[Rfam]
RNA sequence: AUAGCUGUAACGUCCGCUAUCAAGGUAGCUGUAACUUCCGCUAUUAAGAUAGCAGUUACAGCUAUCUUGAUAGCGGAAGUUACAGCUAUCUUGAUAGCGGAAGUUACUGCUAU
Numbered sequence: 001a002u003a004g005c006u007g008u009a010a011c012g013u014c015c016g017c018u019a020u021c022a023a024g025g026u027a028g029c030u031g032u033a034a035c036u037u038c039c040g041c042u043a044u045u046a047a048g049a050u051a052g053c054a055g056u057u058a059c060a061g062c063u064a065u066c067u068u069g070a071u072a073g074c075g076g077a078a079g080u081u082a083c084a085g086c087u088a089u090c091u092u093g094a095u096a097g098c099g100g101a102a103g104u105u106a107c108u109g110c111u112a113u
Stems, first nucleotide, its partner, number of pairs: 001113005007107005013101033052062002

This 113-nucleotide sequence from Lotus japonicus belongs to the Rfam family "MIR7526 microRNA precursor family". Rfam links the family to the GO terms miRNA-mediated post-transcriptional gene silencing and RISC complex. Pairs were carried over by alignment from the consensus structure, which was predicted with RNAalifold.